[Rfam]
RNA sequence: UCAGAUUGCUAUCGUAUCUUACGGUAAAGAGAAACCAGCUGUAUUAGGGCACGAUGAAGCAGCUUACGCUAAAAAUCGUCGUGCUGUCUUAUCCUACUAAGAGAAUGCAAUGAGAAAUUAUUUCAGAUUUUAUCUAUUG
Numbered sequence: 001u002c003a004g005a006u007u008g009c010u011a012u013c014g015u016a017u018c019u020u021a022c023g024g025u026a027a028a029g030a031g032a033a034a035c036c037a038g039c040u041g042u043a044u045u046a047g048g049g050c051a052c053g054a055u056g057a058a059g060c061a062g063c064u065u066a067c068g069c070u071a072a073a074a075a076u077c078g079u080c081g082u083g084c085u086g087u088c089u090u091a092u093c094c095u096a097c098u099a100a101g102a103g104a105a106u107g108c109a110a111u112g113a114g115a116a117a118u119u120a121u122u123u124c125a126g127a128u129u130u131u132a133u134c135u136a137u138u139g
Base pairs, nucleotide, nucleotide: 001047003045004044007041008040014035015034017032018031019030020029054138057135059133062130065127068124075118076117079113080112081111082110083108084107086106087105089103090102
The record is a 139-nucleotide RNA sequence from secondary endosymbiont of Ctenarytaina eucalypti, which matches "CpoB/ybgF ICR thermometer" in Rfam. It scores 80 bits against the family's covariance model. About the family: Imprinting control region from upstream of cpoB/ybgF (tol/pal system protein).